[Rfam]
RNA sequence: GAAUGAUGAAUGAUGAACUUUGUUGUUCCCUAUUGGUUUGAUUCGCCGCGAUGAUGGCAUCUUACGUAUUAGCUCUAUCUGAUCCCAUUC
Dot-bracket structure: .((((..................................(....(((........)))..)........................)))).